mir-1 microRNA precursor family: a 76-nucleotide RNA from Cyprinus carpio. Taxonomically the source falls in Cyprinus carpio (Eukaryota, Actinopteri, Ostariophysi, Cyprininae). Rfam links the family to the GO terms miRNA-mediated post-transcriptional gene silencing and RISC complex. Rfam 15.1 lists 4,474 matches to the family in 965 species. A search with the family's covariance model found it, with a score of 68 bits. Rfam describes the family as follows. This family represents the microRNA (miRNA) mir-1 family. miRNAs are transcribed as ~70nt precursors (modelled here) and subsequently processed by the Dicer enzyme to give a ~22nt product. In this case the mature sequence comes from the 3' arm of the precursor. The extents of the hairpin precursors are not generally known and are estimated based on hairpin prediction. The products are thought to have regulatory roles through complementarity to mRNA. The involvement of Dicer in miRNA processing suggests a relationship with the phenomenon of RNA interference. miRNAs are numbered based on the sequence of the mature RNA. This family also contains the mir-206 from human, which appears to be related to mir-1.
[Rfam]
RNA sequence: CUUGUGCUGACAUGCUUCCUUAUAUGCCCAUAUGAAUAUUCAAGUUAUGGAAUGUAAGGAAGUGUGUGGUUUCAGG
Numbered sequence: 001c002u003u004g005u006g007c008u009g010a011c012a013u014g015c016u017u018c019c020u021u022a023u024a025u026g027c028c029c030a031u032a033u034g035a036a037u038a039u040u041c042a043a044g045u046u047a048u049g050g051a052a053u054g055u056a057a058g059g060a061a062g063u064g065u066g067u068g069g070u071u072u073c074a075g076g
Stems, first nucleotide, its partner, number of pairs: 008069001010067016028050005